Rfam assigns this 60-nucleotide RNA from Chiloscyllium punctatum to the family "GP20-b RNA". The source organism's lineage runs through Eukaryota, Eumetazoa, Elasmobranchii, Galeomorphii and Chiloscyllium. The family's RNA type in Rfam is cis-regulatory element. It scores 38 bits against the family's covariance model.

RNA sequence: GGCCAGCAGUAGUCCUUAAAGAUGCUGUCAAAUAGUGAUGAGAACACUUAGAAAAACGUA
Numbered sequence: 001g002g003c004c005a006g007c008a009g010u011a012g013u014c015c016u017u018a019a020a021g022a023u024g025c026u027g028u029c030a031a032a033u034a035g036u037g038a039u040g041a042g043a044a045c046a047c048u049u050a051g052a053a054a055a056a057c058g059u060a
Base pairs, nucleotide, nucleotide: 001015002014004012007027008026009025010024011023034048035047036046037045